[Rfam]
This 66-nucleotide RNA sequence from Trypanosoma brucei belongs to the Rfam family "Trypanosomatid snoRNA TB9Cs1H3". The sequence is in the family's curated seed alignment. A reference for the family is Liang et al. (2005), "A genome-wide analysis of C/D and H/ACA-like small nucleolar RNAs in Trypanosoma brucei reveals a trypanosome-specific pattern of rRNA modification", RNA. Its family is annotated with nucleolus and RNA processing in the Gene Ontology.
RNA sequence: UGAGAACGCGCUAUUAGCUCCCAACGGGUAUGACUGCUUCCACUUGGGUUCCUGAGGCGUGUGAGA
Numbered sequence: 001u002g003a004g005a006a007c008g009c010g011c012u013a014u015u016a017g018c019u020c021c022c023a024a025c026g027g028g029u030a031u032g033a034c035u036g037c038u039u040c041c042a043c044u045u046g047g048g049u050u051c052c053u054g055a056g057g058c059g060u061g062u063g064a065g066a
Base pairs, nucleotide, nucleotide: 006062007061008060009059010058011057012056020048021047022046023045

Rfam 15.1 lists 40 matches to the family in 14 species.
Pairs were carried over by alignment from the consensus structure, which was predicted with WAR.